[Rfam]
RNA sequence: GCCGCCAUAGCUCAGUCGGUUAGAGCUUGGGUCUAAUAAGCCCAAGGUCGCAGGUUCGACCCCUGCUGGCGGCA
Numbered sequence: 001g002c003c004g005c006c007a008u009a010g011c012u013c014a015g016u017c018g019g020u021u022a023g024a025g026c027u028u029g030g031g032u033c034u035a036a037u038a039a040g041c042c043c044a045a046g047g048u049c050g051c052a053g054g055u056u057c058g059a060c061c062c063c064u065g066c067u068g069g070c071g072g073c074a
Base pairs, nucleotide, nucleotide: 001073002072003071004070005069006068007067010026011025012024013023028044029043030042031041032040050066051065052064053063054062
Shown here is a 74-nucleotide RNA sequence from Cylicocyclus nassatus, a member of the family "tRNA". Gene Ontology term of the family: triplet codon-amino acid adaptor activity. NCBI's taxonomy places the organism under Eukaryota, Eumetazoa, Bilateria, Rhabditomorpha, Cylicocyclus.